[Rfam]
RNA sequence: ACGUGAGUAAGUCCUUUCCGAAACGAAUGAUGCUACCUUGAGGUAGGUGGGACAAAGUAGGGAAGGGGUCACAU
Numbered sequence: 001a002c003g004u005g006a007g008u009a010a011g012u013c014c015u016u017u018c019c020g021a022a023a024c025g026a027a028u029g030a031u032g033c034u035a036c037c038u039u040g041a042g043g044u045a046g047g048u049g050g051g052a053c054a055a056a057g058u059a060g061g062g063a064a065g066g067g068g069u070c071a072c073a074u
Stems, first nucleotide, its partner, number of pairs: 001074001003072004012067008033046005
This 74-nucleotide RNA belongs to the Rfam family "DUF3800-X RNA". Rfam's curators put it in the seed alignment. The family's RNA type in Rfam is small RNA. The family's consensus secondary structure is taken from published work.